[Rfam]
RNA: c-di-GMP-I riboswitch aptamer
RNA sequence: AACUGACAAAGGCCACUUCGUUCGAAAGACGGAGGCGCAAAGUCCCAAUCUAAAGGCGCAAUGCCCACGAUUUCAGGGAUUGCCGGU
Numbered sequence: 001a002a003c004u005g006a007c008a009a010a011g012g013c014c015a016c017u018u019c020g021u022u023c024g025a026a027a028g029a030c031g032g033a034g035g036c037g038c039a040a041a042g043u044c045c046c047a048a049u050c051u052a053a054a055g056g057c058g059c060a061a062u063g064c065c066c067a068c069g070a071u072u073u074c075a076g077g078g079a080u081u082g083c084c085g086g087u
Stems, first nucleotide, its partner, number of pairs: 012038002017033004022029002041081004046076001048071003055065004